[Rfam]
RNA sequence: UCAUUCGAUGUUCCACCCUUUUCACACACCUGACUAACACAAAACCGCAGAUGUAUUGAUGUUAGUAGGCGUUGUGGGAAGGGUGGCGAUGAUGAGCAU
Numbered sequence: 001u002c003a004u005u006c007g008a009u010g011u012u013c014c015a016c017c018c019u020u021u022u023c024a025c026a027c028a029c030c031u032g033a034c035u036a037a038c039a040c041a042a043a044a045c046c047g048c049a050g051a052u053g054u055a056u057u058g059a060u061g062u063u064a065g066u067a068g069g070c071g072u073u074g075u076g077g078g079a080a081g082g083g084u085g086g087c088g089a090u091g092a093u094g095a096g097c098a099u
Stems, first nucleotide, its partner, number of pairs: 004096004011088001013086014027071001029069003033066007040058003
The family of this 99-nucleotide RNA sequence from Caenorhabditis brenneri is "mir-253 microRNA precursor family". For this family Rfam cites "Comprehensive discovery of endogenous Argonaute binding sites in Caenorhabditis elegans" (Zisoulis et al., Nat Struct Mol Biol, 2010). It scores 77 bits against the family's covariance model.